[Rfam]
RNA sequence: AUUUGUCGUAGGUUUUGUCUGAAAUAUUGUCCAGACAAGGCUCACAGCAGUUAAAUCU
Numbered sequence: 001a002u003u004u005g006u007c008g009u010a011g012g013u014u015u016u017g018u019c020u021g022a023a024a025u026a027u028u029g030u031c032c033a034g035a036c037a038a039g040g041c042u043c044a045c046a047g048c049a050g051u052u053a054a055a056u057c058u
Base pairs, nucleotide, nucleotide: 008045009044012041013040014039015038016037017036018035019034020033021032
Rfam assigns this 58-nucleotide RNA sequence from Streptococcus pneumoniae to the family "Lacto-rpoB RNA". It is annotated as a cis-regulatory element.